Alphaproteobacterial ar15: a 97-nucleotide RNA from Phyllobacterium myrsinacearum.

[Rfam]
RNA sequence: GCGUAACGAGCGGUUCUCCUCCCAUUUUUUCGCUCGUUACGUGUUCCCCUCUGGACGCAUUUGCGUUCACAAUUCGCCGGGCUCCUGCCCGGCAUUU
Numbered sequence: 001g002c003g004u005a006a007c008g009a010g011c012g013g014u015u016c017u018c019c020u021c022c023c024a025u026u027u028u029u030u031c032g033c034u035c036g037u038u039a040c041g042u043g044u045u046c047c048c049c050u051c052u053g054g055a056c057g058c059a060u061u062u063g064c065g066u067u068c069a070c071a072a073u074u075c076g077c078c079g080g081g082c083u084c085c086u087g088c089c090c091g092g093c094a095u096u097u
Base pairs, nucleotide, nucleotide: 001042002041003040004039005038007036008035009034010033011032012031013030052069053068054067055066056065057064058063077092078091079090080089081088082087

For this family Rfam cites "Identification of two small regulatory RNAs linked to virulence in Brucella abortus 2308" (Caswell et al., Mol Microbiol, 2012).
The base pairs follow the family's consensus structure.
Rfam links the family to the GO term protein binding.
A search with the family's covariance model found it, with a score of 56 bits.
Taxonomically the source falls in Phyllobacterium (Bacteria, Pseudomonadati, Pseudomonadota, Hyphomicrobiales).